RNA sequence: AUAUGGCGCUUUUAACGACACACACGUUUCGUCACAUACGGUUGGGUCCCACAAAAGGGUACCGUAUGGGGGGCGUGGAGGCAUAAC
Numbered sequence: 001a002u003a004u005g006g007c008g009c010u011u012u013u014a015a016c017g018a019c020a021c022a023c024a025c026g027u028u029u030c031g032u033c034a035c036a037u038a039c040g041g042u043u044g045g046g047u048c049c050c051a052c053a054a055a056a057g058g059g060u061a062c063c064g065u066a067u068g069g070g071g072g073g074c075g076u077g078g079a080g081g082c083a084u085a086a087c
Stems, first nucleotide, its partner, number of pairs: 023077008035068008048059003
This 87-nucleotide RNA from Legionella feeleii belongs to the Rfam family "t44 RNA". A search with the family's covariance model found it, with a score of 65 bits. Pairs were carried over by alignment from the consensus structure, which was predicted with LocARNA.